Annotation:
Shown here is a 530-nucleotide part of an RNA from an uncultured Nitrososphaerota archaeon, a member of the family "Archaeal small subunit ribosomal RNA". Rfam links the family to the GO terms ribosome and structural constituent of ribosome. On this family, see Yusupov et al., Science 2001: "Crystal structure of the ribosome at 5.5 A resolution". Rfam 15.1 lists 709 matches to the family in 491 species.
RNA sequence: AAUCCGGUUGAUCCUGCCGGACCCGACCGGUAUCGGGGUGGGGCUAAGCCAUGCAAGUCGUACGUCCCCCAGCCACGUGGGGGGCGUGGCGCACGGCUCAGUAGUACGCAGCUAACCUACCCUAAGGAGGGGGAUAAUCCCGGGAAACUGGGGCUAAUCCCCCAUAGACCUAGGGUACUGGAAGGUCCCUAGGUCGAAAGGGACUGGCCGGCAUGCCGGCCAGUCCGCCUUAGGAUGGGGCUGCGUCCGAUCAGGUAGUUGGUGGGGUAAAGGCCCACCAAGCCUAUGACCGGUGCGGGCUCUGAGAGGAGGAGCCCGGAGAUGGACCCUGAGACAAGGGUCCAGGCCCUACGGGGCGCAGCAGGCGCGAAACCUUCGCAAUGCCCGAAAGGGUGACGAGGCUACCCCGAGUGCCGUCCGCUGAGGACGGCUUUUGCCGGGUCUAAAAAGCCCGGCGAAUAAGGGGAGGGCAAGUCUGGUGUCAGCCGCCGCGGUAAUACCAGCUCCCCGACUGGUCGGGACGAUUAUUG
Numbered sequence: 001a002a003u004c005c006g007g008u009u010g011a012u013c014c015u016g017c018c019g020g021a022c023c024c025g026a027c028c029g030g031u032a033u034c035g036g037g038g039u040g041g042g043g044c045u046a047a048g049c050c051a052u053g054c055a056a057g058u059c060g061u062a063c064g065u066c067c068c069c070c071a072g073c074c075a076c077g078u079g080g081g082g083g084g085c086g087u088g089g090c091g092c093a094c095g096g097c098u099c100a101g102u103a104g105u106a107c108g109c110a111g112c113u114a115a116c117c118u119a120c121c122c123u124a125a126g127g128a129g130g131g132g133g134a135u136a137a138u139c140c141c142g143g144g145a146a147a148c149u150g151g152g153g154c155u156a157a158u159c160c161c162c163c164a165u166a167g168a169c170c171u172a173g174g175g176u177a178c179u180g181g182a183a184g185g186u187c188c189c190u191a192g193g194u195c196g197a198a199a200g201g202g203a204c205u206g207g208c209c210g211g212c213a214u215g216c217c218g219g220c221c222a223g224u225c226c227g228c229c230u231u232a233g234g235a236u237g238g239g240g241c242u243g244c245g246u247c248c249g250a251u252c253a254g255g256u257a258g259u260u261g262g263u264g265g266g267g268u269a270a271a272g273g274c275c276c277a278c279c280a281a282g283c284c285u286a287u288g289a290c291c292g293g294u295g296c297g298g299g300c301u302c303u304g305a306g307a308g309g310a311g312g313a314g315c316c317c318g319g320a321g322a323u324g325g326a327c328c329c330u331g332a333g334a335c336a337a338g339g340g341u342c343c344a345g346g347c348c349c350u351a352c353g354g355g356g357c358g359c360a361g362c363a364g365g366c367g368c369g370a371a372a373c374c375u376u377c378g379c380a381a382u383g384c385c386c387g388a389a390a391g392g393g394u395g396a397c398g399a400g401g402c403u404a405c406c407c408c409g410a411g412u413g414c415c416g417u418c419c420g421c422u423g424a425g426g427a428c429g430g431c432u433u434u435u436g437c438c439g440g441g442u443c444u445a446a447a448a449a450g451c452c453c454g455g456c457g458a459a460u461a462a463g464g465g466g467a468g469g470g471c472a473a474g475u476c477u478g479g480u481g482u483c484a485g486c487c488g489c490c491g492c493g494g495u496a497a498u499a500c501c502a503g504c505u506c507c508c509c510g511a512c513u514g515g516u517c518g519g520g521a522c523g524a525u526u527a528u529u530g
Stems, first nucleotide, its partner, number of pairs: 004020005022520010033410009042368001048366003052363003057090003062087003068083003097321003106246008116238002121234007129163004138153006168194008177186002201226011247293003254284003259281008296318004300311004323344006346357004374400001376399003382395005413431007436456007463509006476503004485492002